Rfam assigns this 82-nucleotide sequence from Lachnospiraceae bacterium G41 to the family "c-di-GMP-I riboswitch aptamer". Taxonomically the source falls in Lachnospiraceae (Bacteria, Bacillati, Bacillota, Clostridia). Rfam describes the family as follows. GEMM was predicted in a large-scale screen for bacterial structured RNA regulatory elements.
[Rfam]
RNA sequence: UCAAAUAAAGGGCAAACUAUCCGCGAGGGUAGGACGCAAAGUUGUAAACCUUAAAAGAAUUAAAGGUGGUUUAACUGCAAUC
Numbered sequence: 001u002c003a004a005a006u007a008a009a010g011g012g013c014a015a016a017c018u019a020u021c022c023g024c025g026a027g028g029g030u031a032g033g034a035c036g037c038a039a040a041g042u043u044g045u046a047a048a049c050c051u052u053a054a055a056a057g058a059a060u061u062a063a064a065g066g067u068g069g070u071u072u073a074a075c076u077g078c079a080a081u082c
Stems, first nucleotide, its partner, number of pairs: 012037002017032006040076004046071002048067003055061002